[Rfam]
MIR408 microRNA precursor family: a 194-nucleotide RNA from Panicum virgatum.
RNA sequence: GGGUGGUCUGGAUUGGAGACAGGGAUGAGGCAGAGCAUGGGAUGGGGCCAUCAACAAAAAAAAAAAAAACCGUUUCUUCCACUGCGAAAGAAGAGGGGUUCUUCAUCAGGCACAGAAAAGAUUGAGAGCUCCGCUGGUGUUGUUGCUCCCUCCCCUGCACUGCCUCUUCCCUGGCUCCCCCAUCAUACCCGGCC
Number, nucleotide and partner (000 for none) at each position: 001g000002g000003g000004u000005g000006g000007u000008c000009u000010g000011g000012a000013u000014u000015g000016g177017a176018g175019a000020c173021a172022g171023g170024g169025a168026u000027g000028a165029g164030g163031c162032a161033g160034a000035g158036c157037a156038u000039g154040g000041g153042a000043u000044g000045g149046g148047g000048c000049c000050a000051u000052c000053a000054a000055c000056a000057a000058a000059a000060a000061a000062a000063a000064a000065a000066a000067a000068a000069a000070c000071c000072g000073u000074u000075u000076c000077u000078u000079c000080c000081a000082c000083u000084g000085c000086g000087a000088a000089a000090g000091a000092a000093g000094a000095g000096g000097g000098g000099u000100u000101c000102u000103u000104c000105a000106u000107c000108a000109g000110g000111c000112a000113c000114a000115g000116a000117a000118a000119a000120g000121a000122u000123u000124g000125a000126g000127a000128g000129c000130u000131c000132c000133g000134c000135u000136g000137g000138u000139g000140u000141u000142g000143u000144u000145g000146c000147u000148c046149c045150c000151u000152c000153c041154c039155c000156u037157g036158c035159a000160c033161u032162g031163c030164c029165u028166c000167u000168u025169c024170c023171c022172u021173g020174g000175c018176u017177c016178c000179c000180c000181c000182a000183u000184c000185a000186u000187a000188c000189c000190c000191g000192g000193c000194c000
Gene Ontology terms of the family: RISC complex and miRNA-mediated post-transcriptional gene silencing. For this family Rfam cites "Novel and stress-regulated microRNAs and other small RNAs from Arabidopsis" (Sunkar and Zhu, Plant Cell, 2004).